[Rfam]
RNA sequence: AUGGAAGUGACGAUGAUUUCCCCAGAUGAUCGAAGCUGAACAUACUGUGCGACAUUUGAAUUCUCAUUUUCAUGAGAAUUCCAAGCCAGAAAUAUGAUCCAU
Numbered sequence: 001a002u003g004g005a006a007g008u009g010a011c012g013a014u015g016a017u018u019u020c021c022c023c024a025g026a027u028g029a030u031c032g033a034a035g036c037u038g039a040a041c042a043u044a045c046u047g048u049g050c051g052a053c054a055u056u057u058g059a060a061u062u063c064u065c066a067u068u069u070u071c072a073u074g075a076g077a078a079u080u081c082c083a084a085g086c087c088a089g090a091a092a093u094a095u096g097a098u099c100c101a102u
Stems, first nucleotide, its partner, number of pairs: 001102005
Source information: Small nucleolar RNA Z103: a 102-nucleotide RNA sequence from Hibiscus syriacus. It scores 93 bits against the family's covariance model. NCBI's taxonomy places the organism under Eukaryota, Streptophyta, Streptophytina, Spermatophyta, Hibiscus. Rfam classes the family as a C/D-box small nucleolar RNA.